[Rfam]
RNA sequence: GGACUCGGCUUGCUGAGGCGCACGGCAAGAGGCGAGGAG
Numbered sequence: 001g002g003a004c005u006c007g008g009c010u011u012g013c014u015g016a017g018g019c020g021c022a023c024g025g026c027a028a029g030a031g032g033c034g035a036g037g038a039g
Stems, first nucleotide, its partner, number of pairs: 004037001005035003009029007
A member of the RNA family "Human immunodeficiency virus type 1 dimerisation initiation site" from Lentivirus humimdef1, 39 nucleotides long.
Rfam describes the family as follows. This cis element is composed of four hairpins called SL1 to SL4 (SL is for Stem Loop). This element is involved in encapsidation of the retroviral RNA an essential step in replication. It is found in HIV, SIV and CIV. It has been shown that SL1 may provide a secondary binding site for Rev.
On this family, see McBride and Panganiban, J Virol 1997: "Position dependence of functional hairpins important for human immunodeficiency virus type 1 RNA encapsidation in vivo".
Rfam's curators put it in the seed alignment.
The source organism's lineage runs through Viruses, Revtraviricetes, Retroviridae, Orthoretrovirinae and Lentivirus humimdef1.
The family's RNA type in Rfam is cis-regulatory element.